[Rfam]
RNA sequence: UCGAAGUUUCAUCUACAUGGAUAAGAUUUUUUGUCCUUAGUGGUUACGAAUCGUGAAACAAGUAGCAAUACCCCAUGUCUUGCUUUAGCAAGACAUGGGGUAUUUCUAUUUG
Dot-bracket structure: .......(((((....))))).....................................(((((((.(((((.(((.(((((........))))).))).))))).)))))))
Numbered sequence: 001u002c003g004a005a006g007u008u009u010c011a012u013c014u015a016c017a018u019g020g021a022u023a024a025g026a027u028u029u030u031u032u033g034u035c036c037u038u039a040g041u042g043g044u045u046a047c048g049a050a051u052c053g054u055g056a057a058a059c060a061a062g063u064a065g066c067a068a069u070a071c072c073c074c075a076u077g078u079c080u081u082g083c084u085u086u087a088g089c090a091a092g093a094c095a096u097g098g099g100g101u102a103u104u105u106c107u108a109u110u111u112g
Stems, first nucleotide, its partner, number of pairs: 008021005059112007067104005073098003077094005